RNA sequence: UGCCAAUGAGGACCAAACAUCCUGUCUUAUCCCUGUUCUAACCCCAGAACCAGUAAUGGUGAACCCACUGGGGUAACUGGGAGAGGGGAUGAGAACUUGUUCCAUAAGGAACUGUCUGAGGUAC
Numbered sequence: 001u002g003c004c005a006a007u008g009a010g011g012a013c014c015a016a017a018c019a020u021c022c023u024g025u026c027u028u029a030u031c032c033c034u035g036u037u038c039u040a041a042c043c044c045c046a047g048a049a050c051c052a053g054u055a056a057u058g059g060u061g062a063a064c065c066c067a068c069u070g071g072g073g074u075a076a077c078u079g080g081g082a083g084a085g086g087g088g089a090u091g092a093g094a095a096c097u098u099g100u101u102c103c104a105u106a107a108g109g110a111a112c113u114g115u116c117u118g119a120g121g122u123a124c
Stems, first nucleotide, its partner, number of pairs: 001123004

The family of this 124-nucleotide RNA sequence from Propithecus coquereli is "Small nucleolar RNA SNORD22". The match comes from Rfam's covariance-model search (114 bits). The base pairs follow the family's consensus structure, which was predicted with PFOLD. The family has 49 seed sequences and 1,081 matches in Rfam 15.1.